A member of the RNA family "cspA thermoregulator" from Dasania phycosphaerae, 435 nucleotides long. Its family is annotated with regulation of translation and response to temperature stimulus in the Gene Ontology. Taxonomically the source falls in Dasania (Bacteria, Pseudomonadota, Gammaproteobacteria, Cellvibrionales). The family's RNA type in Rfam is RNA thermoregulator.
[Rfam]
RNA sequence: AUCUACCUAGCUUGAAAGUACGUUUUUUACAAUAUGCACACCAUUUCGAUAUUCGUUUAGAUUCUCGUCCUGAUUUCAUAAGUAAUAGCAACACUUCCAGCCCAACGGCCAUUAUUGGCUUUAUUUACUUUUGAAAAUUUAGGAUAUUAUUAUGUCUACUACUACUGGUACUGUUAAGUGGUUCAACGAAUCUAAAGGUUUCGGUUUUAUCGAGCAAGAAAACGGCCCAGACGUUUUCGCUCACUUCUCUGCUAUCUCUGGUUCUGGCUUUAAAACUUUGGCUGAAGGCCAACGUGUUGAGUUCACUGUAACUCAAGGUCAAAAAGGCCCACAAGCUGAGAACAUCGUAGCUAUCUAAUUAGGUCUCCUAAUUUAGCUAUAAGCAAACUCGCAAGGGUUUGGGAAAAGGGUAAGACUUCGGUCUUGCCCUUUUUU
Numbered sequence: 001a002u003c004u005a006c007c008u009a010g011c012u013u014g015a016a017a018g019u020a021c022g023u024u025u026u027u028u029a030c031a032a033u034a035u036g037c038a039c040a041c042c043a044u045u046u047c048g049a050u051a052u053u054c055g056u057u058u059a060g061a062u063u064c065u066c067g068u069c070c071u072g073a074u075u076u077c078a079u080a081a082g083u084a085a086u087a088g089c090a091a092c093a094c095u096u097c098c099a100g101c102c103c104a105a106c107g108g109c110c111a112u113u114a115u116u117g118g119c120u121u122u123a124u125u126u127a128c129u130u131u132u133g134a135a136a137a138u139u140u141a142g143g144a145u146a147u148u149a150u151u152a153u154g155u156c157u158a159c160u161a162c163u164a165c166u167g168g169u170a171c172u173g174u175u176a177a178g179u180g181g182u183u184c185a186a187c188g189a190a191u192c193u194a195a196a197g198g199u200u201u202c203g204g205u206u207u208u209a210u211c212g213a214g215c216a217a218g219a220a221a222a223c224g225g226c227c228c229a230g231a232c233g234u235u236u237u238c239g240c241u242c243a244c245u246u247c248u249c250u251g252c253u254a255u256c257u258c259u260g261g262u263u264c265u266g267g268c269u270u271u272a273a274a275a276c277u278u279u280g281g282c283u284g285a286a287g288g289c290c291a292a293c294g295u296g297u298u299g300a301g302u303u304c305a306c307u308g309u310a311a312c313u314c315a316a317g318g319u320c321a322a323a324a325a326g327g328c329c330c331a332c333a334a335g336c337u338g339a340g341a342a343c344a345u346c347g348u349a350g351c352u353a354u355c356u357a358a359u360u361a362g363g364u365c366u367c368c369u370a371a372u373u374u375a376g377c378u379a380u381a382a383g384c385a386a387a388c389u390c391g392c393a394a395g396g397g398u399u400u401g402g403g404a405a406a407a408g409g410g411u412a413a414g415a416c417u418u419c420g421g422u423c424u425u426g427c428c429c430u431u432u433u434u435u
Stems, first nucleotide, its partner, number of pairs: 019216001021214001023212001031208002036205002039203001041198002044195001049193001051191002054188004060184002064181002069154001071152003076144002079141004087095002108119003156168003160164001222309004230238002241299001243297002246294001250291002252288002256281002260277001265274001317329002320326001331380001334378007384401002387398004405432012